[Rfam]
The record is a 197-nucleotide sequence from Oryza punctata, which matches "MIR1435 microRNA precursor family" in Rfam. NCBI's taxonomy places the organism under Eukaryota, Euphyllophyta, Spermatophyta, Magnoliopsida, Oryza. The match comes from Rfam's covariance-model search (121 bits).

RNA sequence: UGGGUUUAUCCUAAGUCAAACUUCUUCAAGUUCGGCCAAGUUUAUAGAAAAAUUAGCAACAUUUCUAACCAAAAAAGUAUACUAUAAAAAUAUAUUCAAUGGUGGAUUUAGUGGAACUAAUUUGGUGCUGUAGAUUUUGCUACAUUUUUCUAUAAACUUGGUCAAACUUGAAGAAGUUUGACUUAGGACAAACUUAA
Number, nucleotide and partner (000 for none) at each position: 001u000002g000003g000004g000005u192006u191007u190008a000009u188010c000011c186012u185013a184014a183015g182016u181017c180018a179019a178020a177021c176022u175023u174024c173025u172026u171027c000028a000029a000030g000031u166032u165033c000034g163035g162036c000037c000038a000039a000040g000041u000042u000043u000044a000045u152046a151047g150048a149049a148050a147051a146052a145053u000054u142055a141056g140057c000058a138059a137060c000061a135062u134063u133064u132065c000066u130067a129068a000069c125070c124071a123072a122073a121074a000075a000076a000077g000078u000079a000080u000081a000082c000083u000084a000085u000086a000087a000088a000089a000090a000091u000092a000093u000094a000095u000096u000097c000098a000099a000100u000101g000102g000103u000104g000105g000106a000107u000108u000109u000110a000111g000112u000113g000114g000115a000116a000117c000118u000119a000120a000121u073122u072123u071124g070125g069126u000127g000128c000129u067130g066131u000132a064133g063134a062135u061136u000137u059138u058139g000140c056141u055142a054143c000144a000145u052146u051147u050148u049149u048150c047151u046152a045153u000154a000155a000156a000157c000158u000159u000160g000161g000162u035163c034164a000165a032166a031167c000168u000169u000170g000171a026172a025173g024174a023175a022176g021177u020178u019179u018180g017181a016182c015183u014184u013185a012186g011187g000188a009189c000190a007191a006192a005193c000194u000195u000196a000197a000